RNA sequence: AACUCUGCGUGUUCGCGGCGGACCUUGAUUUAAUGUCAUUCAAUUAAGGCACGCGGUGAAUGCUAAGAGUG
Numbered sequence: 001a002a003c004u005c006u007g008c009g010u011g012u013u014c015g016c017g018g019c020g021g022a023c024c025u026u027g028a029u030u031u032a033a034u035g036u037c038a039u040u041c042a043a044u045u046a047a048g049g050c051a052c053g054c055g056g057u058g059a060a061u062g063c064u065a066a067g068a069g070u071g
Base pairs, nucleotide, nucleotide: 003069004068005067006066009063010062011061012060013059014058015057016056018054019053020052023049024048025047026046027045028044029043030042

mir-124 microRNA precursor family: a 71-nucleotide sequence from Electrophorus electricus. Gene Ontology terms of the family: RISC complex and miRNA-mediated post-transcriptional gene silencing.